[Rfam]
RNA sequence: AGAGAGAGAGAGAGAGAGAGGAUCUGAUCCCCAGCCUCCAUGGCAGCUGUUGAUCAGCUGUUACCUCUCUCUUUCUCUCCA
Numbered sequence: 001a002g003a004g005a006g007a008g009a010g011a012g013a014g015a016g017a018g019a020g021g022a023u024c025u026g027a028u029c030c031c032c033a034g035c036c037u038c039c040a041u042g043g044c045a046g047c048u049g050u051u052g053a054u055c056a057g058c059u060g061u062u063a064c065c066u067c068u069c070u071c072u073u074u075c076u077c078u079c080c081a
Base pairs, nucleotide, nucleotide: 008073009072010071011070012069013068014067015066016065019062020061022059024057025056026055027054028053029052032049033048034047035046
This 81-nucleotide RNA sequence from Pipistrellus kuhlii belongs to the Rfam family "mir-574 microRNA precursor family". For this family Rfam cites "Patterns of known and novel small RNAs in human cervical cancer" (Lui et al., Cancer Res, 2007). The base pairs follow the family's consensus structure, which was predicted with RNAalifold. The family has 6 seed sequences and 4,084 matches in Rfam 15.1. Its family is annotated with miRNA-mediated post-transcriptional gene silencing and RISC complex in the Gene Ontology.